Source information
A member of the RNA family "Cyanobacteria heterocyst sRNA" from Nostoc commune, 56 nucleotides long. On this family, see Brenes-Alvarez et al., Front Microbiol 2016: "Identification of Conserved and Potentially Regulatory Small RNAs in Heterocystous Cyanobacteria". Lineage of the source: Bacteria > Cyanobacteriota > Cyanophyceae > Nostocaceae > Nostoc commune.
RNA sequence: GGGAUGUUGUUAUGCACUGGAUUUAUAUAAAGGUUUGGUUCACUGCCAAACCUUAU
Numbered sequence: 001g002g003g004a005u006g007u008u009g010u011u012a013u014g015c016a017c018u019g020g021a022u023u024u025a026u027a028u029a030a031a032g033g034u035u036u037g038g039u040u041c042a043c044u045g046c047c048a049a050a051c052c053u054u055a056u
Base pairs, nucleotide, nucleotide: 002018003017005016006015007014030054031053032052033051034050035049036048037047038046039045